[Rfam]
RNA sequence: CUGAUGAGUGUGUCAUGGGUGGACGAUACCAAAACGGCCCGCUCUGAAAAGACAAUUGCUCUUUACAGGGGACACAUAAGUAUCAG
Numbered sequence: 001c002u003g004a005u006g007a008g009u010g011u012g013u014c015a016u017g018g019g020u021g022g023a024c025g026a027u028a029c030c031a032a033a034a035c036g037g038c039c040c041g042c043u044c045u046g047a048a049a050a051g052a053c054a055a056u057u058g059c060u061c062u063u064u065a066c067a068g069g070g071g072a073c074a075c076a077u078a079a080g081u082a083u084c085a086g
Stems, first nucleotide, its partner, number of pairs: 001086005008077006017040003024036002042070005047064003051060001
Rfam assigns this 86-nucleotide RNA to the family "L4-Archaeoglobi ribosomal protein leades".